[Rfam]
RNA sequence: GGUUCAUGAUGACACAGGACCUUGUCUGAGCAUCGUGAUUUCAAAAUCUGAGUUUGAAAAUGUCACUGAAAUC
Number, nucleotide and partner (000 for none) at each position: 001g073002g072003u071004u070005c000006a000007u000008g000009a000010u000011g000012a000013c000014a000015c000016a000017g000018g000019a000020c000021c000022u000023u000024g000025u000026c000027u000028g000029a000030g000031c000032a000033u000034c000035g000036u000037g000038a000039u000040u000041u000042c000043a000044a000045a000046a000047u000048c000049u000050g000051a000052g000053u000054u000055u000056g000057a000058a000059a000060a000061u000062g000063u000064c000065a000066c000067u000068g000069a000070a004071a003072u002073c001